[Rfam]
The record is a 35-nucleotide RNA sequence from Tupaia belangeri, which matches "Iron response element I" in Rfam. It is annotated as a cis-regulatory element. A reference for the family is Hentze et al. (1987), "Identification of the iron-responsive element for the translational regulation of human ferritin mRNA", Science. The family has 62 seed sequences and 6,829 matches in Rfam 15.1. Its family is annotated with response to iron ion in the Gene Ontology.
RNA sequence: ACGUUUCCUGCUUCAACAGUGCUUGGACAGAACCU
Numbered sequence: 001a002c003g004u005u006u007c008c009u010g011c012u013u014c015a016a017c018a019g020u021g022c023u024u025g026g027a028c029a030g031a032a033c034c035u
Stems, first nucleotide, its partner, number of pairs: 001035001003033002006031002010028001012027005017021001